[Rfam]
RNA: Guanidine-I riboswitch aptamer
RNA sequence: CGAGUUCGCGGCUAGGGUUCCGGCGCCAUCGGCGUGACUGGUCCGAGAGCUGCCACCAUACGGGAGACAUCCGUACGGUCGCACGGCGGGACAAAAGCCCGGGAGAC
Numbered sequence: 001c002g003a004g005u006u007c008g009c010g011g012c013u014a015g016g017g018u019u020c021c022g023g024c025g026c027c028a029u030c031g032g033c034g035u036g037a038c039u040g041g042u043c044c045g046a047g048a049g050c051u052g053c054c055a056c057c058a059u060a061c062g063g064g065a066g067a068c069a070u071c072c073g074u075a076c077g078g079u080c081g082c083a084c085g086g087c088g089g090g091a092c093a094a095a096a097g098c099c100c101g102g103g104a105g106a107c
Base pairs, nucleotide, nucleotide: 008053009052010051011050012049015044016043020041021040022038023035024034025033026032027031055079056078057077059075060074061073062072082102084105088100089099090098